[Rfam]
RNA sequence: AGGGGUCGCUGAAUUAGAGAUCGGCACCCUUUCUUUCUUUUAAUUUUUGGAGUUAUAAAAUGUCUCUAAGCGUUGAAGCUAAAGCAAAAAUCGUUUCUGAGUUUGGUCGUGGCGAA
Number, nucleotide and partner (000 for none) at each position: 001a000002g000003g000004g000005g000006u000007c000008g025009c024010u023011g022012a021013a000014u000015u000016a000017g000018a000019g000020a000021u012022c011023g010024g009025c008026a000027c000028c000029c000030u000031u000032u000033c000034u000035u000036u000037c000038u000039u000040u000041u000042a000043a000044u000045u000046u070047u069048u068049g067050g066051a065052g064053u000054u000055a000056u000057a000058a000059a000060a000061u000062g000063u000064c052065u051066c050067u049068a048069a047070g046071c000072g000073u000074u000075g000076a000077a000078g000079c000080u000081a000082a000083a000084g000085c000086a000087a000088a000089a000090a000091u000092c000093g000094u000095u000096u000097c000098u000099g000100a000101g000102u000103u000104u000105g000106g000107u000108c000109g000110u000111g000112g000113c000114g000115a000116a000
The record is a 116-nucleotide RNA from Klebsiella pneumoniae, which matches "Ribosomal S15 leader" in Rfam.
The E. coli Ribosomal S15 gene 5' UTR can form two alternative structures.
Rfam classes the family as a cis-regulatory leader.
Its Rfam clan is "Ribosomal Protein S15 Leader clan".
Pairs were carried over by alignment from the consensus structure, which is taken from published work.
Rfam's curators put it in the seed alignment.
Lineage of the source: Bacteria > Pseudomonadota > Enterobacterales > Klebsiella > Klebsiella pneumoniae subsp. pneumoniae.